[Rfam]
RNA sequence: UCGAAGCUCCAUCUACAAAUGGAUAAGACCUUGGUCUUAGUGUAGACGAGUUUUUGAAAUAAAAAAAGGGAGAAAUACCUCCCUCUUGUUCUAUUAAGAGGGAGGUAUUUCUCCUUUUUU
Numbered sequence: 001u002c003g004a005a006g007c008u009c010c011a012u013c014u015a016c017a018a019a020u021g022g023a024u025a026a027g028a029c030c031u032u033g034g035u036c037u038u039a040g041u042g043u044a045g046a047c048g049a050g051u052u053u054u055u056g057a058a059a060u061a062a063a064a065a066a067a068g069g070g071a072g073a074a075a076u077a078c079c080u081c082c083c084u085c086u087u088g089u090u091c092u093a094u095u096a097a098g099a100g101g102g103a104g105g106u107a108u109u110u111c112u113c114c115u116u117u118u119u120u
Stems, first nucleotide, its partner, number of pairs: 008023005061117003069114010080103008

A member of the RNA family "Plastid-psbA-1 3UTR RNA", 120 nucleotides long. About the family: Plastid psbA-1 is a non-coding RNA (ncRNA) present in plastids. Clan: Plastid-psbA 3UTR RNA clan.